[Rfam]
The record is a 139-nucleotide RNA sequence from Clupea harengus, which matches "Small nucleolar RNA SNORD94" in Rfam.
RNA sequence: UUGGCUGUGAUGAGACGCGCAGGGGUACGGACCUCAGCUACAAAUGGGAGCUGAAUGUCAGUGGCUUUAUACCGGUCAGCAGGCAUGUGGUCAGCUGACUGGUGGCCACUGGCAUGAAACAGUCGCAAGUCUGAGCCAC
Numbered sequence: 001u002u003g004g005c006u007g008u009g010a011u012g013a014g015a016c017g018c019g020c021a022g023g024g025g026u027a028c029g030g031a032c033c034u035c036a037g038c039u040a041c042a043a044a045u046g047g048g049a050g051c052u053g054a055a056u057g058u059c060a061g062u063g064g065c066u067u068u069a070u071a072c073c074g075g076u077c078a079g080c081a082g083g084c085a086u087g088u089g090g091u092c093a094g095c096u097g098a099c100u101g102g103u104g105g106c107c108a109c110u111g112g113c114a115u116g117a118a119a120c121a122g123u124c125g126c127a128a129g130u131c132u133g134a135g136c137c138a139c
Stems, first nucleotide, its partner, number of pairs: 002138004
Rfam 15.1 lists 802 matches to the family in 622 species.